[Rfam]
RNA sequence: UGGGUAGCCUCGUGCCACCGUCCGACCCCCCGACCCGACGGCGGCGCGAGGCUACCUA
Numbered sequence: 001u002g003g004g005u006a007g008c009c010u011c012g013u014g015c016c017a018c019c020g021u022c023c024g025a026c027c028c029c030c031c032g033a034c035c036c037g038a039c040g041g042c043g044g045c046g047c048g049a050g051g052c053u054a055c056c057u058a
Stems, first nucleotide, its partner, number of pairs: 002057004007052010018041005
This 58-nucleotide RNA from Mycobacteroides franklinii belongs to the Rfam family "F6 TB sRNA". It scores 65 bits against the family's covariance model. A reference for the family is Arnvig and Young (2009), "Identification of small RNAs in Mycobacterium tuberculosis", Mol Microbiol. It is annotated as a small RNA. Rfam 15.1 lists 310 matches to the family in 304 species.